[Rfam]
RNA: mir-4650 microRNA precursor family
RNA sequence: CUGUAGAGAUUAUCAGGCCUCUUUCUACCUUCCAAGGCUCAGAAGGUAGAAUGAGGCCUGACAUAUCUGCAG
Numbered sequence: 001c002u003g004u005a006g007a008g009a010u011u012a013u014c015a016g017g018c019c020u021c022u023u024u025c026u027a028c029c030u031u032c033c034a035a036g037g038c039u040c041a042g043a044a045g046g047u048a049g050a051a052u053g054a055g056g057c058c059u060g061a062c063a064u065a066u067c068u069g070c071a072g
Stems, first nucleotide, its partner, number of pairs: 001072007009064002013061009023051010